[Rfam]
Nucleotides: 288
Base pairs, nucleotide, nucleotide: 007103008102015098016097017096018095026086027085028084029083030082031081039075040074041073050072051071052070053069054068055067106200107199108198109197110196111195112194202213203212204211230249231248232247233246234245235244236243254285255284256283257282265281266280267279268278
Number, partner (000 for none) and nucleotide at each position: 001000c002000u003000a004000a005000a006000a007103a008102c009000a010000g011000u012000g013000a014000u015098a016097g017096g018095a019000a020000u021000a022000a023000g024000u025000a026086g027085c028084g029083u030082u031081u032000g033000u034000u035000u036000c037000c038000c039075u040074g041073u042000u043000u044000c045000a046000g047000a048000a049000a050072g051071c052070u053069g054068a055067u056000g057000g058000c059000c060000g061000a062000u063000g064000u065000g066000a067055a068054u069053c070052a071051g072050c073041a074040c075039a076000u077000a078000g079000a080000u081031a082030a083029g084028c085027g086026u087000g088000a089000a090000u091000u092000a093000c094000a095018u096017c097016c098015u099000g100000g101000a102008g103007u104000u105000u106200u107199c108198u109197u110196u111195g112194u113000g114000a115000a116000u117000g118000u119000a120000u121000a122000a123000g124000u125000a126000c127000g128000u129000g130000u131000u132000c133000a134000a135000a136000a137000a138000g139000g140000a141000g142000u143000a144000c145000u146000a147000a148000g149000g150000c151000a152000g153000g154000c155000c156000u157000g158000u159000a160000a161000g162000c163000c164000u165000c166000c167000a168000a169000a170000c171000u172000u173000u174000u175000u176000g177000a178000a179000c180000a181000u182000c183000c184000u185000c186000u187000a188000u189000a190000a191000g192000u193000a194112g195111c196110a197109a198108a199107g200106a201000a202213c203212g204211g205000u206000a207000c208000a209000c210000g211204c212203c213202g214000u215000u216000a217000a218000c219000a220000a221000g222000u223000u224000a225000g226000a227000g228000u229000g230249g231248g232247a233246a234245a235244u236243u237000c238000a239000a240000u241000u242000g243236a244235a245234u246233u247232u248231c249230c250000a251000a252000u253000a254285a255284g256283g257282g258000u259000g260000g261000u262000a263000a264000c265281g266280c267279g268278a269000c270000g271000a272000a273000c274000a275000a276000a277000c278268u279267c280266g281265u282257c283256c284255c285254u286000u287000u288000u

The family of this 288-nucleotide RNA from Pueribacillus theae is "T-box leader". The organism belongs to Pueribacillus, within Bacteria. Uncharged tRNA acts as the effector for transcription antitermination of genes in the T-box leader family. T-boxes are found upstream of many aminoacyl-tRNA synthetase genes and some amino acid biosynthetic genes usually in Gram-positive bacteria. The match comes from Rfam's covariance-model search (149 bits).